[Rfam]
RNA sequence: CGUAAAGUAAAGGGGAGCCUUGAGCUGAGAGUGGAUUCGUUCCUGACCCUAGAACCUGAUCACGGUUAAACGUGCGUAGGAAUUACUUUGAAAUAGGGC
Numbered sequence: 001c002g003u004a005a006a007g008u009a010a011a012g013g014g015g016a017g018c019c020u021u022g023a024g025c026u027g028a029g030a031g032u033g034g035a036u037u038c039g040u041u042c043c044u045g046a047c048c049c050u051a052g053a054a055c056c057u058g059a060u061c062a063c064g065g066u067u068a069a070a071c072g073u074g075c076g077u078a079g080g081a082a083u084u085a086c087u088u089u090g091a092a093a094u095a096g097g098g099c
Stems, first nucleotide, its partner, number of pairs: 006087005011050004016044001017025002033042003055080004061074004
RNA: TPP riboswitch aptamer (THI element)